The record is a 99-nucleotide RNA from Capsella rubella, which matches "MIR9560 microRNA precursor family" in Rfam. A search with the family's covariance model found it, with a score of 74 bits.

RNA sequence: GUUUGUAUUGACAGGUGGUGGAACAAAUAUGAGUUUUUUAUAUGCUAAUCAGAUAAAAAUAAAACUCAUAUUUAGUUCUACCAACUGUUAAAGCACACA
Number, nucleotide and partner (000 for none) at each position: 001g098002u097003u000004u000005g094006u093007a000008u091009u090010g089011a088012c087013a086014g085015g000016u000017g082018g081019u080020g079021g078022a077023a076024c075025a000026a072027a071028u070029a069030u068031g067032a066033g065034u064035u063036u062037u000038u000039u000040a000041u000042a000043u000044g000045c000046u000047a000048a000049u000050c000051a000052g000053a000054u000055a000056a000057a000058a000059a000060u000061a000062a036063a035064a034065c033066u032067c031068a030069u029070a028071u027072u026073u000074a000075g024076u023077u022078c021079u020080a019081c018082c017083a000084a000085c014086u013087g012088u011089u010090a009091a008092a000093g006094c005095a000096c000097a002098c001099a000